[Rfam]
RNA sequence: GAGUUAGCGAUGAUUAUAAAAAUAUUUCUUGCUCUAACUUUUUCAAUUUAGACAUGACAGACCUCGUAUUAUACUCAUAGAGUUAGAGUUAC
Numbered sequence: 001g002a003g004u005u006a007g008c009g010a011u012g013a014u015u016a017u018a019a020a021a022a023u024a025u026u027u028c029u030u031g032c033u034c035u036a037a038c039u040u041u042u043u044c045a046a047u048u049u050a051g052a053c054a055u056g057a058c059a060g061a062c063c064u065c066g067u068a069u070u071a072u073a074c075u076c077a078u079a080g081a082g083u084u085a086g087a088g089u090u091a092c
Stems, first nucleotide, its partner, number of pairs: 003092002006090002
Small nucleolar RNA snoR8a: a 92-nucleotide RNA sequence from Theobroma umbraticum. Rfam links the family to the GO terms RNA processing and nucleolus. The family has 7 seed sequences and 956 matches in Rfam 15.1. For this family Rfam cites "Multiple snoRNA gene clusters from Arabidopsis" (Brown et al., RNA, 2001). Taxonomically the source falls in Theobroma (Eukaryota, Embryophyta, Pentapetalae, rosids). The family's consensus secondary structure was predicted with WAR. The family's RNA type in Rfam is C/D-box small nucleolar RNA.